[Rfam]
Nucleotides: 211
Base pairs, nucleotide, nucleotide: 020077021076022075023074024073025072026071027070029068087118088117089116090115091114095107096106097105098104119133120132121131122130124128137201138200139199140198141197142196143195152186153185154184155183156182
Number, partner (000 for none) and nucleotide at each position: 001000a002000a003000c004000a005000u006000u007000u008000g009000g010000a011000u012000a013000g014000c015000g016000c017000c018000a019000g020077a021076c022075u023074u024073c025072g026071a027070g028000g029068a030000u031000g032000u033000g034000c035000a036000g037000g038000u039000u040000u041000c042000g043000c044000u045000g046000g047000g048000a049000a050000u051000a052000a053000g054000c055000c056000g057000g058000u059000u060000g061000a062000a063000a064000c065000a066000a067000u068029u069000u070027c071026u072025u073024g074023a075022a076021g077020u078000g079000a080000c081000g082000a083000g084000g085000a086000u087118u088117g089116g090115g091114u092000u093000u094000a095107u096106c097105g098104a099000a100000g101000g102000a103000u104098u105097c106096g107095g108000c109000g110000g111000a112000u113000g114091a115090c116089c117088c118087a119133a120132g121131g122130c123000a124128a125000g126000u127000g128124u129000a130122g131121u132120c133119u134000a135000c136000a137201g138200g139199a140198u141197u142196g143195a144000a145000a146000g147000a148000a149000a150000a151000g152186a153185g154184a155183c156182c157000g158000u159000u160000c161000a162000g163000g164000c165000g166000u167000c168000a169000g170000c171000u172000g173000a174000c175000g176000u177000u178000g179000a180000a181000a182156g183155g184154u185153c186152u187000u188000a189000c190000a191000g192000a193000g194000a195143u196142c197141a198140a199139u200138c201137c202000c203000c204000a205000c206000a207000c208000c209000c210000a211000g